A member of the RNA family "Lysine riboswitch aptamer" from Paenibacillus antarcticus, 204 nucleotides long. A search with the family's covariance model found it, with a score of 89 bits. From the family's description: Riboswitches are metabolite binding domains within certain messenger RNAs that serve as precision sensors for their corresponding targets. Its family is annotated with lysine biosynthetic process in the Gene Ontology. The source organism's lineage runs through Bacteria, Bacillati, Caryophanales, Paenibacillaceae and Paenibacillus.

RNA sequence: AGGUGAGGUAGAGGUCGCGAAUUGCGAUGAGUAGACUGUGAAGAGGCGUAAGAAGCCGCCGUAUCAUUCACAGGUCGAAAGGCGCCUUUCGCCGAAGUAUAUAGGCUGCUUCAAUUAGCCGCGUAUGCUGGGUCUGUUUUCCGAAUAGGGGCAGAACUGUCAUAGUUUCCUUCGAUAAGGAAGCUAUGUUGGGCUAUCUUUCAU
Dot-bracket structure: .....((((((.....(((((..(((.......((((((((..........................)))))).))......)))..)))))...(((((((.((((.........))))..)))))))((.((((((((.......)))))))).))..((((((((((........)))))))))).....)))))).....